[Rfam]
RNA: Eukaryotic large subunit ribosomal RNA, nucleotides 2788 to 2862
Organism: Fasciola hepatica
RNA sequence: UGCCCGGUGCCCUGAACGUCAGCAUUAGUAAAUUCAAUCAAGAGCGGGUAAACGGCAGGGAUAACUGUGGCUUUC
Numbered sequence: 001u002g003c004c005c006g007g008u009g010c011c012c013u014g015a016a017c018g019u020c021a022g023c024a025u026u027a028g029u030a031a032a033u034u035c036a037a038u039c040a041a042g043a044g045c046g047g048g049u050a051a052a053c054g055g056c057a058g059g060g061a062u063a064a065c066u067g068u069g070g071c072u073u074u075c
Stems, first nucleotide, its partner, number of pairs: 002056003007053002009049004014045001017044001019042001025036001027034002058074003062070001